[Rfam]
RNA sequence: UAAGUCCUGAUGUGUUCGUUUUUGUACCUAUUCGUUUUGACCGAACAUAUUACCUACGGGAGUUUGGCGUUUUCAUGCCGCAUACAUGCCUUUUUAUAAAGGACGUAUAAAGCUGAAACAGAACACCCACCUGCCAAGUGCGGGUUCAAAACACUAGGAUUUUGCGACGGCAUGAUUGGGGCUUAU
Number, nucleotide and partner (000 for none) at each position: 001u000002a184003a183004g182005u181006c180007c179008u178009g177010a176011u175012g173013u172014g171015u170016u000017c169018g168019u167020u000021u000022u000023u000024g000025u000026a000027c000028c000029u000030a000031u000032u000033c000034g152035u151036u150037u000038u148039g147040a146041c144042c143043g000044a000045a000046c000047a000048u000049a000050u000051u000052a000053c000054c000055u000056a000057c000058g128059g127060g126061a000062g124063u123064u122065u121066g000067g119068c000069g000070u000071u000072u117073u116074c115075a114076u000077g113078c112079c000080g000081c000082a000083u000084a106085c105086a000087u000088g000089c102090c101091u100092u099093u000094u000095u000096a000097u000098a000099a092100a091101g090102g089103a000104c000105g085106u084107a000108u000109a000110a000111a000112g078113c077114u075115g074116a073117a072118a000119c067120a000121g065122a064123a063124c062125a000126c060127c059128c058129a000130c000131c000132u000133g000134c000135c000136a000137a000138g000139u000140g000141c000142g000143g042144g041145u000146u040147c039148a038149a000150a036151a035152c034153a000154c000155u000156a000157g000158g000159a000160u000161u000162u000163u000164g000165c000166g000167a019168c018169g017170g015171c014172a013173u012174g000175a011176u010177u009178g008179g007180g006181g005182c004183u003184u002185a000186u000

6S / SsrS RNA: a 186-nucleotide RNA from Heyndrickxia sporothermodurans. By type it is a non-coding RNA gene. A search with the family's covariance model found it, with a score of 107 bits. A reference for the family is Wassarman and Storz (2000), "6S RNA regulates E. coli RNA polymerase activity", Cell.